[Rfam]
RNA sequence: GAAAUCUGUGGUGAUGGAGUUCGCCAUUAAAUGCGUAAAGCUAAUGACUCCUACAAAAUA
Numbered sequence: 001g002a003a004a005u006c007u008g009u010g011g012u013g014a015u016g017g018a019g020u021u022c023g024c025c026a027u028u029a030a031a032u033g034c035g036u037a038a039a040g041c042u043a044a045u046g047a048c049u050c051c052u053a054c055a056a057a058a059u060a
Stems, first nucleotide, its partner, number of pairs: 010025004016051006033041002
Description: Fluoride riboswitch aptamer (crcB RNA motif): a 60-nucleotide RNA sequence from Clostridium tetanomorphum. The match comes from Rfam's covariance-model search (50 bits).